[Rfam]
RNA sequence: UCGGCCCCGGUUCACGUCUCCUCAGAGGGAGCGAGGCGACCCGGCGCC
Numbered sequence: 001u002c003g004g005c006c007c008c009g010g011u012u013c014a015c016g017u018c019u020c021c022u023c024a025g026a027g028g029g030a031g032c033g034a035g036g037c038g039a040c041c042c043g044g045c046g047c048c
Stems, first nucleotide, its partner, number of pairs: 003048003007044004015038006021031002
This 48-nucleotide RNA sequence from Nocardioides agri belongs to the Rfam family "L31-Actinobacteria ribosomal protein leader".
The source organism's lineage runs through Bacteria, Bacillati, Actinomycetota, Actinomycetes and Nocardioides.
It is annotated as a cis-regulatory leader.
On this family, see Eckert and Weinberg, BMC Microbiol 2020: "Discovery of 20 novel ribosomal leader candidates in bacteria and archaea".